[Rfam]
RNA sequence: AUGCCCAUCGGGGCCUCGGAAUCUGUACUUCUUUUA
Dot-bracket structure: ..((((....))))..(((...)))...........